The family of this 76-nucleotide sequence from Hoylesella enoeca is "L13-Bacteroidia ribosomal protein leader". A reference for the family is Eckert and Weinberg (2020), "Discovery of 20 novel ribosomal leader candidates in bacteria and archaea", BMC Microbiol. The source organism's lineage runs through Bacteria, Bacteroidales, Prevotellaceae, Hoylesella and Hoylesella enoeca. Rfam classes the family as a cis-regulatory leader.

RNA sequence: GGGGAUGAACUUAGAGUCCCCACUUUCGGGCGUGUUAAUAGUCGUGCUUUUGGCCGAGCGCGACGGUUAGUGAAUC
Numbered sequence: 001g002g003g004g005a006u007g008a009a010c011u012u013a014g015a016g017u018c019c020c021c022a023c024u025u026u027c028g029g030g031c032g033u034g035u036u037a038a039u040a041g042u043c044g045u046g047c048u049u050u051u052g053g054c055c056g057a058g059c060g061c062g063a064c065g066g067u068u069a070g071u072g073a074a075u076c
Stems, first nucleotide, its partner, number of pairs: 001021006035070005041064009